RNA sequence: GGCUUUCUUCGCGGCGGAGCUCGACCGCCCACAAAGAUGAUCGUCGACUACAUCCAGGCCCACCGGCACCGGUUCGGGGUCGAGCCGAUCUGUGCGGUGUUGCAGGUCGCCCCG
Dot-bracket structure: ............(((((.......))))).............................................(((((......((.((((((......)))))).)))))))

A member of the RNA family "ALIL pseudoknot" from Promicromonospora sukumoe, 114 nucleotides long. The base pairs follow the family's consensus structure, which is taken from published work. By type it is a cis-regulatory element.